[Rfam]
RNA sequence: UGGGGCAUGAACCUGGCAUACAAUGUAGAUUUCUGUGUUCGUUAGGCAACAGCUACAUUGUCUGCUGGGUUUCAGGCUACCUGG
Numbered sequence: 001u002g003g004g005g006c007a008u009g010a011a012c013c014u015g016g017c018a019u020a021c022a023a024u025g026u027a028g029a030u031u032u033c034u035g036u037g038u039u040c041g042u043u044a045g046g047c048a049a050c051a052g053c054u055a056c057a058u059u060g061u062c063u064g065c066u067g068g069g070u071u072u073c074a075g076g077c078u079a080c081c082u083g084g
Base pairs, nucleotide, nucleotide: 013068014067015066016065017064018063020061021060022059023058024057025056026055027054028053033052034051035050036049